[Rfam]
RNA sequence: AUAUACACUGAAUGGCCAGAUUAUUAUGAUUUCUGAGCACAUAAUAAUCUGGUCACUCAGUGUGUGU
Numbered sequence: 001a002u003a004u005a006c007a008c009u010g011a012a013u014g015g016c017c018a019g020a021u022u023a024u025u026a027u028g029a030u031u032u033c034u035g036a037g038c039a040c041a042u043a044a045u046a047a048u049c050u051g052g053u054c055a056c057u058c059a060g061u062g063u064g065u066g067u
Base pairs, nucleotide, nucleotide: 004064005063006062007061008060009059010058011057013055014054015053016052017051019049020048021047022046023045024044025043026042027041028040